[Rfam]
Description: U4 spliceosomal RNA: a 161-nucleotide RNA from Lentinula aciculospora. From the family's description: U4 small nuclear RNA (U4 snRNA) is a component of the major U2-dependent spliceosome. Rfam links the family to the GO terms U4 snRNP and spliceosomal tri-snRNP complex assembly. It scores 64 bits against the family's covariance model. NCBI's taxonomy places the organism under Eukaryota, Opisthokonta, Fungi, Agaricomycetes, Lentinula. The family has 177 seed sequences and 32,178 matches in Rfam 15.1. The family's RNA type in Rfam is spliceosomal small nuclear RNA.
RNA sequence: UCUCUUGUGCUCGGGCGCGCGGUCGCACCAGUGAGGUUUUUACCGAGGUCGAUCUAUUUUGCUGAUUGCAAAUUAUACAUCCGAACCCGUCUGUUAGCUUCGGCUUUCAGCAAUUUUUGGAAUCCCUUUCCUUAUGAUGACUUCCUGGAAGUUUGAUAGGA
Numbered sequence: 001u002c003u004c005u006u007g008u009g010c011u012c013g014g015g016c017g018c019g020c021g022g023u024c025g026c027a028c029c030a031g032u033g034a035g036g037u038u039u040u041u042a043c044c045g046a047g048g049u050c051g052a053u054c055u056a057u058u059u060u061g062c063u064g065a066u067u068g069c070a071a072a073u074u075a076u077a078c079a080u081c082c083g084a085a086c087c088c089g090u091c092u093g094u095u096a097g098c099u100u101c102g103g104c105u106u107u108c109a110g111c112a113a114u115u116u117u118u119g120g121a122a123u124c125c126c127u128u129u130c131c132u133u134a135u136g137a138u139g140a141c142u143u144c145c146u147g148g149a150a151g152u153u154u155g156a157u158a159g160g161a
Stems, first nucleotide, its partner, number of pairs: 021054005027049003035044003089111001091110003096105003125160003